[Rfam]
RNA sequence: ACCACCUAGCACGGGAGCCAGUGAGACUGGUUGAGAGGGCAAUCAAUGCGGAGUUCGUCGCCGCCCAUUGCCGACCGUUGAACCUGAUCCGGUUGAUCCCGGCGUAGGAAGCCAUGACUGCAUCUGA
Numbered sequence: 001a002c003c004a005c006c007u008a009g010c011a012c013g014g015g016a017g018c019c020a021g022u023g024a025g026a027c028u029g030g031u032u033g034a035g036a037g038g039g040c041a042a043u044c045a046a047u048g049c050g051g052a053g054u055u056c057g058u059c060g061c062c063g064c065c066c067a068u069u070g071c072c073g074a075c076c077g078u079u080g081a082a083c084c085u086g087a088u089c090c091g092g093u094u095g096a097u098c099c100c101g102g103c104g105u106a107g108g109a110a111g112c113c114a115u116g117a118c119u120g121c122a123u124c125u126g127a
Stems, first nucleotide, its partner, number of pairs: 007114001009112002011078004017031005038072005083108004089102004
RNA: TPP riboswitch aptamer (THI element)
Organism: Lampropedia aestuarii